[Rfam]
RNA sequence: CCACCAUCCAGAGCGGUCGAGAGUCCUGGCUCGAGGACACCGCAGCAACCUGUCGCUCCCCCGCCGGAGCGGACAAGGUGCUAACGCCAGGCGCGAUGGGAG
Number, nucleotide and partner (000 for none) at each position: 001c102002c000003a000004c099005c098006a097007u096008c095009c000010a000011g000012a000013g043014c042015g041016g040017u039018c000019g000020a000021g032022a031023g030024u000025c000026c090027u089028g088029g087030c023031u022032c021033g000034a000035g000036g000037a000038c000039a017040c016041c015042g014043c013044a082045g081046c080047a079048a000049c078050c077051u075052g074053u073054c072055g000056c000057u000058c000059c000060c000061c000062c000063g000064c000065c000066g000067g000068a000069g000070c000071g000072g054073a053074c052075a051076a000077g050078g049079u047080g046081c045082u044083a000084a000085c000086g094087c029088c028089a027090g026091g000092c000093g000094c086095g008096a007097u006098g005099g004100g000101a000102g001
The record is a 102-nucleotide RNA from Myceligenerans xiligouense, which matches "SAM riboswitch aptamer (S box leader)" in Rfam. NCBI's taxonomy places the organism under Bacteria, Bacillati, Actinomycetota, Micrococcales, Myceligenerans. From the family's description: The SAM riboswitch is found upstream of a number of genes which code for proteins involved in methionine or cysteine biosynthesis in Gram-positive bacteria.